[Rfam]
RNA sequence: GCUGUUACAUUGUAACCUUGUGAUAUCAUACAGAGAAUCACAGGGUAGUAUCUCAGGGUCUGU
Numbered sequence: 001g002c003u004g005u006u007a008c009a010u011u012g013u014a015a016c017c018u019u020g021u022g023a024u025a026u027c028a029u030a031c032a033g034a035g036a037a038u039c040a041c042a043g044g045g046u047a048g049u050a051u052c053u054c055a056g057g058g059u060c061u062g063u
Stems, first nucleotide, its partner, number of pairs: 001063002004060001006058001008056001012052001015046010026030001

A member of the RNA family "MAT2A 3'UTR stem loop B" from Sarcophilus harrisii, 63 nucleotides long. It is annotated as a cis-regulatory element. On this family, see Parker et al., Genome Res 2011: "New families of human regulatory RNA structures identified by comparative analysis of vertebrate genomes".